[Rfam]
RNA sequence: CACCUAAAAUUUCCAAAUCCUCGUAUAACUCCAACAAUAAGGGUUGGGGGUCUCUACUGGAAGCCGUAAACAUUCCUAGCUACGAGAAGAAUCCGCUGUGAA
Numbered sequence: 001c002a003c004c005u006a007a008a009a010u011u012u013c014c015a016a017a018u019c020c021u022c023g024u025a026u027a028a029c030u031c032c033a034a035c036a037a038u039a040a041g042g043g044u045u046g047g048g049g050g051u052c053u054c055u056a057c058u059g060g061a062a063g064c065c066g067u068a069a070a071c072a073u074u075c076c077u078a079g080c081u082a083c084g085a086g087a088a089g090a091a092u093c094c095g096c097u098g099u100g101a102a
Stems, first nucleotide, its partner, number of pairs: 018088001020086006029049007058078001059076004063071001
This 102-nucleotide RNA from Ammoniphilus sp. CFH 90114 belongs to the Rfam family "Purine riboswitch aptamer".
Rfam describes the family as follows. Riboswitches are metabolite binding domains within certain messenger RNAs that serve as precision sensors for their corresponding targets.
The match comes from Rfam's covariance-model search (64 bits).